The record is a 437-nucleotide sequence from Marmota monax, which matches "Vertebrate telomerase RNA" in Rfam. Pairs were carried over by alignment from the consensus structure, which is taken from published work. Its family is annotated with telomere maintenance via telomerase, telomerase activity and telomerase catalytic core complex in the Gene Ontology. The family has 37 seed sequences and 523 matches in Rfam 15.1. It is annotated as a non-coding RNA gene. The source organism's lineage runs through Eukaryota, Eumetazoa, Vertebrata, Sciuromorpha and Marmota. Telomerase is a ribonucleoprotein reverse transcriptase that synthesises telomeric DNA. Telomerase RNAs differ greatly in sequence and structure between vertebrates, ciliates and yeasts, but they share a 5' pseudoknot structure close to the template sequence.
RNA sequence: UGGGCCCGGGAGGGGUGGCGGUCACCCUUUUUCUAACCCUAACUGAGACUGGCGUAGGCGCCGUGCUUUUGGUCCCCGCGCGCUGUUUUUCUGGCUGACUUUCAGCGGGCGGAAAAGCCUCGGCCUACCGCCAACCACCGUUUAGUCUGGAGCAAACAAAAAAUGUCAGCCACUGACCCGUCGCCCCUCCCGGGGACCUGCGGGGGCUCGCCCGCCCUGUUCCCGCGCCCCGCCUAAAGGCCGCGGUCGGCCCGGGGCUUCUCCGGAGGCACCCAUUGCCGCCGUGAAGAGUUCGUCUCUGUCAGCCGCGGGUGUUUCGGUUGCGAAGGGCGAGGCUUAGGCCGUCUGGUCGCAGGAAGAGGAACGGAACUGGUCCCCGUGCGCGGUGCGCUUCCUUGAGCUGUGGGAAGUGGACCCGGGACUUGGUUCAUACAUAC
Numbered sequence: 001u002g003g004g005c006c007c008g009g010g011a012g013g014g015g016u017g018g019c020g021g022u023c024a025c026c027c028u029u030u031u032u033c034u035a036a037c038c039c040u041a042a043c044u045g046a047g048a049c050u051g052g053c054g055u056a057g058g059c060g061c062c063g064u065g066c067u068u069u070u071g072g073u074c075c076c077c078g079c080g081c082g083c084u085g086u087u088u089u090u091c092u093g094g095c096u097g098a099c100u101u102u103c104a105g106c107g108g109g110c111g112g113a114a115a116a117g118c119c120u121c122g123g124c125c126u127a128c129c130g131c132c133a134a135c136c137a138c139c140g141u142u143u144a145g146u147c148u149g150g151a152g153c154a155a156a157c158a159a160a161a162a163a164u165g166u167c168a169g170c171c172a173c174u175g176a177c178c179c180g181u182c183g184c185c186c187c188u189c190c191c192g193g194g195g196a197c198c199u200g201c202g203g204g205g206g207c208u209c210g211c212c213c214g215c216c217c218u219g220u221u222c223c224c225g226c227g228c229c230c231c232g233c234c235u236a237a238a239g240g241c242c243g244c245g246g247u248c249g250g251c252c253c254g255g256g257g258c259u260u261c262u263c264c265g266g267a268g269g270c271a272c273c274c275a276u277u278g279c280c281g282c283c284g285u286g287a288a289g290a291g292u293u294c295g296u297c298u299c300u301g302u303c304a305g306c307c308g309c310g311g312g313u314g315u316u317u318c319g320g321u322u323g324c325g326a327a328g329g330g331c332g333a334g335g336c337u338u339a340g341g342c343c344g345u346c347u348g349g350u351c352g353c354a355g356g357a358a359g360a361g362g363a364a365c366g367g368a369a370c371u372g373g374u375c376c377c378c379g380u381g382c383g384c385g386g387u388g389c390g391c392u393u394c395c396u397u398g399a400g401c402u403g404u405g406g407g408a409a410g411u412g413g414a415c416c417c418g419g420g421a422c423u424u425g426g427u428u429c430a431u432a433c434a435u436a437c
Stems, first nucleotide, its partner, number of pairs: 005194014020178005065118005077111003081107005094170006100163003197356007210336003213332005219324002223320003229312005242286005248281004254274003288300004367429004372423006386415002389412002393408004